[Rfam]
RNA sequence: AAUACUGAACCGACAAGGGCACUGACUGUUUUUCAGAGUGUAGUAAGUGCUUCAUGUUGGUUUGGUUUCG
Numbered sequence: 001a002a003u004a005c006u007g008a009a010c011c012g013a014c015a016a017g018g019g020c021a022c023u024g025a026c027u028g029u030u031u032u033u034c035a036g037a038g039u040g041u042a043g044u045a046a047g048u049g050c051u052u053c054a055u056g057u058u059g060g061u062u063u064g065g066u067u068u069c070g
Stems, first nucleotide, its partner, number of pairs: 004066008013057003017053001018051006025044003

The record is a 70-nucleotide sequence from Salarias fasciatus, which matches "miR-430 microRNA precursor family" in Rfam. Its Rfam clan is "mir-290 clan". Rfam 15.1 lists 24,817 matches to the family in 105 species. For this family Rfam cites "MicroRNAs regulate brain morphogenesis in zebrafish" (Giraldez et al., Science, 2005). It scores 50 bits against the family's covariance model. The base pairs follow the family's consensus structure, which was predicted with RNAalifold. NCBI's taxonomy places the organism under Eukaryota, Eurypterygia, Acanthomorphata, Blenniidae, Salarias.